[Rfam]
RNA sequence: UGUGCUAUGAAGAGGUAAGGCACCAAUUGGUGUUUUUUGGGCAGUGGUUUAUCCGUGAGCCCAAUUAAUUAACGACUUCUCCUUCCACUGAGCAUU
Numbered sequence: 001u002g003u004g005c006u007a008u009g010a011a012g013a014g015g016u017a018a019g020g021c022a023c024c025a026a027u028u029g030g031u032g033u034u035u036u037u038u039g040g041g042c043a044g045u046g047g048u049u050u051a052u053c054c055g056u057g058a059g060c061c062c063a064a065u066u067a068a069u070u071a072a073c074g075a076c077u078u079c080u081c082c083u084u085c086c087a088c089u090g091a092g093c094a095u096u
Stems, first nucleotide, its partner, number of pairs: 002095004
The family of this 96-nucleotide RNA from Olea europaea is "Small nucleolar RNA Z152/R70/R12/". The family's consensus secondary structure was predicted with PFOLD. Taxonomically the source falls in Olea europaea (Eukaryota, Euphyllophyta, Oleeae, Olea). Rfam links the family to the GO terms nucleolus and RNA processing.